A member of the RNA family "Bacterial large signal recognition particle RNA" from Kosmotoga olearia, 262 nucleotides long. Pairs were carried over by alignment from the consensus structure, which is taken from published work. The family's RNA type in Rfam is non-coding RNA gene. Gene Ontology terms of the family: signal recognition particle, plasma membrane targeting and SRP-dependent cotranslational protein targeting to membrane, signal sequence recognition.

RNA sequence: CCAUGCUAGGCGGGGAGCUGGCGGUUCCCUGUACCCGAAAUCCGCCAUAUGCGGGGCCGAAUGCCCUCCGAGGCUGUUCCGGUCGGAACACGGUGUGCUGGAGGGUGUUGAGGAUUGGGUCCCACGCAACGGAGGCUCACGAACCUGGUCAGGUCCGGAAGGAAGCAGCCAUAAGUGAGCUCAACCGUGUGCCGUGGGGGUGCUCAAUCUGAGCCUGAAGGCAUAACCGGUCCGGUCGGGGCUGUCGACGAGGGAGGCAUGG
Numbered sequence: 001c002c003a004u005g006c007u008a009g010g011c012g013g014g015g016a017g018c019u020g021g022c023g024g025u026u027c028c029c030u031g032u033a034c035c036c037g038a039a040a041u042c043c044g045c046c047a048u049a050u051g052c053g054g055g056g057c058c059g060a061a062u063g064c065c066c067u068c069c070g071a072g073g074c075u076g077u078u079c080c081g082g083u084c085g086g087a088a089c090a091c092g093g094u095g096u097g098c099u100g101g102a103g104g105g106u107g108u109u110g111a112g113g114a115u116u117g118g119g120u121c122c123c124a125c126g127c128a129a130c131g132g133a134g135g136c137u138c139a140c141g142a143a144c145c146u147g148g149u150c151a152g153g154u155c156c157g158g159a160a161g162g163a164a165g166c167a168g169c170c171a172u173a174a175g176u177g178a179g180c181u182c183a184a185c186c187g188u189g190u191g192c193c194g195u196g197g198g199g200g201u202g203c204u205c206a207a208u209c210u211g212a213g214c215c216u217g218a219a220g221g222c223a224u225a226a227c228c229g230g231u232c233c234g235g236u237c238g239g240g241g242c243u244g245u246c247g248a249c250g251a252g253g254g255a256g257g258c259a260u261g262g
Base pairs, nucleotide, nucleotide: 001262002261003260004259005258006257007256009058010057011056012030013029014028015027016026017025018024019023034055035054036053037052039050064254065253066252067251068250072246073245074244076242078240079239080238081237082236083235084234085233086232087231092227094225095224096223097222098221099220104215105214106213112210113209114208115207116206117205118204119203120202121198122197123196124195125194126193127189128188130187131186132185135180136179137178138177139176140175146171147170148169149168154163155162156161